[Rfam]
Bacterial RNase P class A: a 385-nucleotide RNA sequence from Demequina activiva.
NCBI's taxonomy places the organism under Bacteria, Bacillati, Actinomycetes, Demequinaceae, Demequina.
The family's RNA type in Rfam is ribozyme.
RNA sequence: UGAGCUGGCCAGGCGGCCGCGUGGUCCUUCACGGAUCCCGAGGAACGUCCGGGCUCCGCAGGGCAGGGUGAUGGCUAACGGCCACCCGGGGUGACCCGCGGGACAGUGCCACAGAGAGAAGACCGCCUCCCGGCGUCGCAAGGCGCCGGGCGGUAAGGGUGAAAGGGUGAGGUAAGAGCUCACCGCGCGACUGGUGACAGGAGCGGCACGGUAAACCCCACCCGGAGCAAGGCCAGACAGAGAGCGCUUGAGGGCUGCCCGCCCGAUGCUCUCGGGUAGGUCGCUGGAGCCCUGGAGCAAUCCAGGGCGUAGAUGGAUGGUCGCCCGGUGCGAGUGCAGCAAUGCGCGCACCCGACAGAACCCGGCGUAUCGGCCAGCUCAUCCG
Number, nucleotide and partner (000 for none) at each position: 001u381002g380003a379004g378005c377006u376007g375008g374009c373010c372011a370012g325013g324014c323015g322016g321017c320018c319019g000020c040021g039022u000023g037024g036025u035026c034027c033028u000029u000030c000031a000032c000033g027034g026035a025036u024037c023038c000039c021040g020041a000042g000043g000044a000045a368046c367047g366048u000049c365050c364051g363052g362053g361054c227055u226056c225057c224058g000059c000060a000061g260062g259063g258064c257065a000066g223067g222068g221069u220070g219071a000072u084073g083074g082075c081076u000077a000078a000079c000080g000081g075082c074083c073084a072085c000086c100087c098088g097089g096090g095091g000092u000093g000094a000095c090096c089097c088098g087099c000100g086101g218102g217103a000104c000105a000106g216107u215108g212109c211110c210111a000112c000113a000114g000115a000116g000117a000118g000119a000120a000121g000122a000123c158124c157125g154126c153127c152128u000129c150130c149131c148132g147133g146134c145135g144136u143137c142138g000139c000140a000141a000142g137143g136144c135145g134146c133147c132148g131149g130150g129151c000152g127153g126154u125155a000156a000157g124158g123159g000160u000161g000162a000163a000164a000165g000166g184167g183168u182169g181170a180171g179172g000173u000174a000175a000176g000177a000178g000179c171180u170181c169182a168183c167184c166185g207186c205187g204188c203189g000190a000191c200192u199193g198194g000195u000196g000197a000198c193199a192200g191201g000202a000203g188204c187205g186206g000207c185208a000209c000210g110211g109212u108213a000214a000215a107216c106217c102218c101219c070220a069221c068222c067223c066224g057225g056226a055227g054228c000229a000230a000231g282232g281233c280234c279235a000236g000237a000238c000239a000240g273241a272242g271243a270244g269245c268246g000247c000248u000249u000250g000251a000252g264253g263254g262255c261256u000257g064258c063259c062260c061261g255262c254263c253264c252265g000266a000267u000268g245269c244270u243271c242272u241273c240274g000275g000276g000277u000278a000279g234280g233281u232282c231283g000284c000285u000286g000287g000288a000289g308290c307291c306292c305293u304294g303295g302296a301297g000298c000299a000300a000301u296302c295303c294304a293305g292306g291307g290308c289309g000310u000311a000312g000313a000314u000315g000316g000317a000318u000319g018320g017321u016322c015323g014324c013325c012326c000327g000328g000329u000330g000331c000332g000333a000334g000335u000336g000337c000338a000339g000340c000341a000342a000343u000344g000345c000346g000347c000348g000349c000350a000351c000352c000353c000354g000355a000356c000357a000358g000359a000360a000361c053362c052363c051364g050365g049366c047367g046368u045369a000370u011371c000372g010373g009374c008375c007376a006377g005378c004379u003380c002381a001382u000383c000384c000385g000